[Rfam]
RNA sequence: AACUGCCAUAUUGGCCAUAGUAGAAGCAUUCAUGUUGCAACCCCUGUCAGAUUCCAACAAAUCUGAUAAAUUCUGCU
Numbered sequence: 001a002a003c004u005g006c007c008a009u010a011u012u013g014g015c016c017a018u019a020g021u022a023g024a025a026g027c028a029u030u031c032a033u034g035u036u037g038c039a040a041c042c043c044c045u046g047u048c049a050g051a052u053u054c055c056a057a058c059a060a061a062u063c064u065g066a067u068a069a070a071u072u073c074u075g076c077u
Stems, first nucleotide, its partner, number of pairs: 013042002019077007026038003048065006
RNA: Mammalian CPEB3 ribozyme
Organism: Alligator mississippiensis